The record is a 139-nucleotide sequence from Peptoclostridium acidaminophilum, which matches "Group II catalytic intron D1-D4-4" in Rfam. Rfam describes the family as follows. Group II introns are found in rRNA, tRNA and mRNA of organelles in fungi, plants and protists, and also in mRNA in bacteria. It scores 101 bits against the family's covariance model. A reference for the family is Lehmann and Schmidt (2003), "Group II introns: structure and catalytic versatility of large natural ribozymes", Crit Rev Biochem Mol Biol. Gene Ontology term of the family: Group II intron splicing. The family has 90 seed sequences and 840 matches in Rfam 15.1.
RNA sequence: UAGUCGGUGAAAGUCCGACACGGGUAGUUGCCAGAGAGCCCGUUAGCUGACCUGCCAUGCAUGGUCGAAAUACCAUGUGUGAAGCGCAGGGAACAAGUAACCCGAGAGGGUGCGAGCGAACUUACAGGUUGUAACAUAA
Numbered sequence: 001u002a003g004u005c006g007g008u009g010a011a012a013g014u015c016c017g018a019c020a021c022g023g024g025u026a027g028u029u030g031c032c033a034g035a036g037a038g039c040c041c042g043u044u045a046g047c048u049g050a051c052c053u054g055c056c057a058u059g060c061a062u063g064g065u066c067g068a069a070a071u072a073c074c075a076u077g078u079g080u081g082a083a084g085c086g087c088a089g090g091g092a093a094c095a096a097g098u099a100a101c102c103c104g105a106g107a108g109g110g111u112g113c114g115a116g117c118g119a120a121c122u123u124a125c126a127g128g129u130u131g132u133a134a135c136a137u138a139a
Base pairs, nucleotide, nucleotide: 020043021042022041023040024039051090052089053088054087055086056081057080058079059078060077061076065072097113098112099111101109102108116132117131118130